[Rfam]
RNA sequence: CUCUGUUUCGUAAUGACUCAGGGCUGAAGGAG
Numbered sequence: 001c002u003c004u005g006u007u008u009c010g011u012a013a014u015g016a017c018u019c020a021g022g023g024c025u026g027a028a029g030g031a032g
Base pairs, nucleotide, nucleotide: 001023002022003021004020005019008016009015
Dot-bracket structure: (((((..((.....))..))))).........